[Rfam]
RNA sequence: ACUGCGUACUUACCUACUCUGUAGUAGCUGAUAUACGUGUAUUACGCCUACUAUAUAGUAGGUAAGUACGCAGUUU
Numbered sequence: 001a002c003u004g005c006g007u008a009c010u011u012a013c014c015u016a017c018u019c020u021g022u023a024g025u026a027g028c029u030g031a032u033a034u035a036c037g038u039g040u041a042u043u044a045c046g047c048c049u050a051c052u053a054u055a056u057a058g059u060a061g062g063u064a065a066g067u068a069c070g071c072a073g074u075u076u
Base pairs, nucleotide, nucleotide: 001074002073003072004071005070006069007068008067009066010065011064012063013062014061015060017058018057020055021054022053023052024051025050026049027048029046030045033042034041035040